Shown here is a 294-nucleotide RNA from Pseudomonas putida, a member of the family "anti ponA RNA". Taxonomically the source falls in Pseudomonas putida (Bacteria, Pseudomonadota, Gammaproteobacteria, Pseudomonas).

[Rfam]
RNA sequence: GAAAUUGUCGUCCUCGGCUGACAGCAGCGCCUGAAUGAAUUGUGGGGGAAUUUCCGCGAAGCGGAUCGGCGAGCGGCGCAUUUCGCCGAAUUCGGCAAUCAGCUUGCCAUCGCUGCUGUACACCCUGAGGGGGAUCUGCAACUGGAUGCUUCUGAGGGACUCGACCGAGGGCAGGCUGGGACUAAGAUACAGAAACGCACCGCUCACACCGAGUACGAGCGCGCAGAUGACUGCGACGGAAGACCACCAGAAGAACUUCAGCAGACGUAUCAAGGCUUUUCGGUGUCCAGGUUG
Numbered sequence: 001g002a003a004a005u006u007g008u009c010g011u012c013c014u015c016g017g018c019u020g021a022c023a024g025c026a027g028c029g030c031c032u033g034a035a036u037g038a039a040u041u042g043u044g045g046g047g048g049a050a051u052u053u054c055c056g057c058g059a060a061g062c063g064g065a066u067c068g069g070c071g072a073g074c075g076g077c078g079c080a081u082u083u084c085g086c087c088g089a090a091u092u093c094g095g096c097a098a099u100c101a102g103c104u105u106g107c108c109a110u111c112g113c114u115g116c117u118g119u120a121c122a123c124c125c126u127g128a129g130g131g132g133g134a135u136c137u138g139c140a141a142c143u144g145g146a147u148g149c150u151u152c153u154g155a156g157g158g159a160c161u162c163g164a165c166c167g168a169g170g171g172c173a174g175g176c177u178g179g180g181a182c183u184a185a186g187a188u189a190c191a192g193a194a195a196c197g198c199a200c201c202g203c204u205c206a207c208a209c210c211g212a213g214u215a216c217g218a219g220c221g222c223g224c225a226g227a228u229g230a231c232u233g234c235g236a237c238g239g240a241a242g243a244c245c246a247c248c249a250g251a252a253g254a255a256c257u258u259c260a261g262c263a264g265a266c267g268u269a270u271c272a273a274g275g276c277u278u279u280u281c282g283g284u285g286u287c288c289a290g291g292u293u294g
Base pairs, nucleotide, nucleotide: 010172011171012170013169014168015167016166017165019163020162021161025045027043028042029041047084048083049082050081051080054078057075058074061070062069086095087094088093103158104157105155108148109147110146111145115142117140118139119138120137122135123133124132125131126130176290177289178288179287180286183283186279187278197268198267201264202262203261204260206258214238220235221234222233244253
It is annotated as an antisense RNA. Its family is annotated with response to antibiotic in the Gene Ontology. From the family's description: Transcribed antisense to the penicillin-binding protein 1A gene called ponA. It was identified by RNAseq and the expression was validated by 5' and 3' RACE experiments. AsponA expression was up or down regulated under different antibiotic stress. Due to its location it may be able to prevent the transcription or translation of the opposite gene.